[Rfam]
RNA sequence: GAGGGUUUUGUGGCCCCUUGGAGCCGCCCGGCGGGUGGGAGGCUUCAAGCCGCCCCGAGCUGCAUUAGCUGAAGACUGUUGUGGUGAGCGUCGGGGAAAAGGCGCGCUGUGAGCGCGUCAGGC
Numbered sequence: 001g002a003g004g005g006u007u008u009u010g011u012g013g014c015c016c017c018u019u020g021g022a023g024c025c026g027c028c029c030g031g032c033g034g035g036u037g038g039g040a041g042g043c044u045u046c047a048a049g050c051c052g053c054c055c056c057g058a059g060c061u062g063c064a065u066u067a068g069c070u071g072a073a074g075a076c077u078g079u080u081g082u083g084g085u086g087a088g089c090g091u092c093g094g095g096g097a098a099a100a101g102g103c104g105c106g107c108u109g110u111g112a113g114c115g116c117g118u119c120a121g122g123c
Stems, first nucleotide, its partner, number of pairs: 001019005020046006027039004051122001053096006059085002062082003066078003101119006
Shown here is a 123-nucleotide RNA from Candidatus Protofrankia datiscae, a member of the family "Group II catalytic intron D1-D4-2". Group II introns are found in rRNA, tRNA and mRNA of organelles in fungi, plants and protists, and also in mRNA in bacteria. For this family Rfam cites "The ins and outs of group II introns" (Bonen and Vogel, Trends Genet, 2001). Pairs were carried over by alignment from the consensus structure. The organism belongs to Protofrankia, within Bacteria. It scores 90 bits against the family's covariance model. Rfam 15.1 lists 1,231 matches to the family in 625 species.